[Rfam]
RNA sequence: GUCAACCACCCCACCCUGAAGGAUGGAGCUUGUUGGGAAACCAAUAAGCCAGGUUGACCAGGGUAAGUCAGUGCUUUUUGGCUGACUACGUUCACAACAGGUCGUUAAGACUCACCGCCGAAUGCUUCCUGAGUUCGGCGCUCUGAAAGGCCCUAAUCAUGCUGACGAAAGGCAAAGCGUCGAAGGUUGGAGCCGCCACCACCGAAAGGUUGUGGGAGCCGGUUGUAAACAUUCCCGAAGGGAGAUGCGU
Number, nucleotide and partner (000 for none) at each position: 001g058002u057003c056004a055005a054006c053007c052008a000009c000010c028011c000012c025013a024014c000015c022016c021017u000018g000019a000020a000021g016022g015023a000024u013025g012026g000027a000028g010029c048030u047031u046032g045033u044034u043035g042036g041037g000038a000039a000040a000041c036042c035043a034044a033045u032046a031047a030048g029049c000050c000051a000052g007053g006054u005055u004056g003057a002058c001059c000060a000061g236062g235063g234064u000065a232066a087067g086068u085069c084070a083071g082072u081073g000074c000075u000076u000077u000078u000079u000080g000081g072082c071083u070084g069085a068086c067087u066088a000089c000090g230091u229092u228093c000094a226095c225096a224097a223098c222099a000100g220101g000102u000103c000104g000105u000106u000107a000108a000109g000110a000111c000112u146113c145114a000115c000116c140117g139118c138119c137120g136121a135122a134123u133124g246125c000126u244127u243128c242129c241130u240131g000132a000133g123134u122135u121136c120137g119138g118139c117140g116141c000142u000143c000144u000145g113146a112147a000148a000149g194150g193151c192152c000153c190154u189155a188156a187157u186158c185159a000160u000161g000162c000163u182164g181165a180166c179167g178168a000169a000170a000171g000172g000173c000174a000175a000176a000177g000178c167179g166180u165181c164182g163183a000184a000185g158186g157187u156188u155189g154190g153191a000192g151193c150194c149195g000196c000197c000198a000199c000200c000201a000202c000203c000204g000205a000206a000207a000208g000209g000210u000211u000212g000213u000214g000215g000216g000217a000218g000219c000220c100221g000222g098223u097224u096225g095226u094227a000228a092229a091230c090231a000232u065233u000234c063235c062236c061237g000238a000239a000240g130241g129242g128243a127244g126245a000246u124247g000248c000249g000250u000
RNA: HNH endonuclease-associated RNA and ORF (HEARO) RNA